RNA: Small nucleolar RNA U3
Organism: Aedes aegypti
RNA sequence: AAGACUGUGCUUCACAGGAUCAUUUCUGUAGGCAAGUUUUCACCACAAGUUUUUACCGAAAGGAAAAGCUUUCCCACCCACGAUGAUGAGACAAUGGUGGCCAGUUUGGAGCGUGAAACUUGGUUCAGUGAGACCAUUCGAUUCUUUCGGAAGGACUUCGGGCUUUUGAUGAUCGGCUUCCUUGCAAUAAAACUGGCCGCGGUCUGAGUGGU
Numbered sequence: 001a002a003g004a005c006u007g008u009g010c011u012u013c014a015c016a017g018g019a020u021c022a023u024u025u026c027u028g029u030a031g032g033c034a035a036g037u038u039u040u041c042a043c044c045a046c047a048a049g050u051u052u053u054u055a056c057c058g059a060a061a062g063g064a065a066a067a068g069c070u071u072u073c074c075c076a077c078c079c080a081c082g083a084u085g086a087u088g089a090g091a092c093a094a095u096g097g098u099g100g101c102c103a104g105u106u107u108g109g110a111g112c113g114u115g116a117a118a119c120u121u122g123g124u125u126c127a128g129u130g131a132g133a134c135c136a137u138u139c140g141a142u143u144c145u146u147u148c149g150g151a152a153g154g155a156c157u158u159c160g161g162g163c164u165u166u167u168g169a170u171g172a173u174c175g176g177c178u179u180c181c182u183u184g185c186a187a188u189a190a191a192a193c194u195g196g197c198c199g200c201g202g203u204c205u206g207a208g209u210g211g212u
Base pairs, nucleotide, nucleotide: 001040002039003038004037005036006035010031011030015028016027017026018025019024052066053065054064056063057062078211079210080209081208097200098199099198100197101196102195103194104193105192106191107190112175113174122164123163124162125161130158131157137151138150139149140148141147